[Rfam]
RNA sequence: AUUCAUCUUCGGGGCGUGGUGAAAUUCCCGACCGGCGGUAAUGAGGCAGUAUUUGCUUAUAAGCCCGCGAGCCUUUUUUAAGGCAGGAUUUGGUGAGAUUCCAAAGCCGACAGUAUAGUCUGGAUGGGAGAAGAUGGAG
Numbered sequence: 001a002u003u004c005a006u007c008u009u010c011g012g013g014g015c016g017u018g019g020u021g022a023a024a025u026u027c028c029c030g031a032c033c034g035g036c037g038g039u040a041a042u043g044a045g046g047c048a049g050u051a052u053u054u055g056c057u058u059a060u061a062a063g064c065c066c067g068c069g070a071g072c073c074u075u076u077u078u079u080a081a082g083g084c085a086g087g088a089u090u091u092g093g094u095g096a097g098a099u100u101c102c103a104a105a106g107c108c109g110a111c112a113g114u115a116u117a118g119u120c121u122g123g124a125u126g127g128g129a130g131a132a133g134a135u136g137g138a139g
Base pairs, nucleotide, nucleotide: 003137004136005135006134007133008132009131010130018028019027031119032118033109034108035068036067037066038065063107064106073083089105090104091103092102093101111122112121113120